[Rfam]
RNA sequence: UGGAUGGAUUAUUAUAUUUGACUGUAUUCACGGUGUGAAAUAGGGGAAUACACUAUUUUUAAAUGGAAAGUGAAUCAACUAACAUAAUAGACUCCU
Number, nucleotide and partner (000 for none) at each position: 001u000002g095003g094004a093005u000006g000007g000008a000009u090010u089011a088012u087013u086014a085015u084016a000017u082018u081019u000020g080021a000022c000023u077024g076025u000026a075027u074028u073029c072030a071031c070032g000033g000034u065035g064036u063037g059038a058039a057040a056041u055042a054043g053044g000045g000046g000047a000048a000049u000050a000051c000052a000053c043054u042055a041056u040057u039058u038059u037060u000061a000062a000063a036064u035065g034066g000067a000068a000069a000070g031071u030072g029073a028074a027075u026076c024077a023078a000079c000080u020081a018082a017083c000084a015085u014086a013087a012088u011089a010090g009091a000092c000093u004094c003095c002096u000

A member of the RNA family "MIR6152 microRNA precursor family" from Nicotiana tabacum, 96 nucleotides long. Its family is annotated with RISC complex and miRNA-mediated post-transcriptional gene silencing in the Gene Ontology. The family has 2 seed sequences and 5,807 matches in Rfam 15.1. A search with the family's covariance model found it, with a score of 96 bits.